Small nucleolar RNA SNORD24: a 68-nucleotide RNA sequence from Tychaedon coryphoeus. On this family, see Hirose and Steitz, Proc Natl Acad Sci U S A 2001: "Position within the host intron is critical for efficient processing of box C/D snoRNAs in mammalian cells". Taxonomically the source falls in Tychaedon (Eukaryota, Bilateria, Craniata, Archelosauria).
RNA sequence: UGCAGAUGAUGAUCACUUUUUGCUGUGAAAAAAAAAAUGAGAUGGCAACCACCAAGAUCGCUGAUGCA
Numbered sequence: 001u002g003c004a005g006a007u008g009a010u011g012a013u014c015a016c017u018u019u020u021u022g023c024u025g026u027g028a029a030a031a032a033a034a035a036a037a038u039g040a041g042a043u044g045g046c047a048a049c050c051a052c053c054a055a056g057a058u059c060g061c062u063g064a065u066g067c068a
Base pairs, nucleotide, nucleotide: 001068002067003066004065